[Rfam]
RNA: Small nucleolar RNA SNORD16
RNA sequence: UGCAAUGAUGUCAGAAUUUUCAUCUUAUUCUGUUCCUGGCGACAGCGUACUGCUGUCAGGAAGCUGAUACAGAAGGCUGAUUAAAAUUGCUAAAAAAAAA
Numbered sequence: 001u002g003c004a005a006u007g008a009u010g011u012c013a014g015a016a017u018u019u020u021c022a023u024c025u026u027a028u029u030c031u032g033u034u035c036c037u038g039g040c041g042a043c044a045g046c047g048u049a050c051u052g053c054u055g056u057c058a059g060g061a062a063g064c065u066g067a068u069a070c071a072g073a074a075g076g077c078u079g080a081u082u083a084a085a086a087u088u089g090c091u092a093a094a095a096a097a098a099a100a
Stems, first nucleotide, its partner, number of pairs: 022081003030072004039064002041057005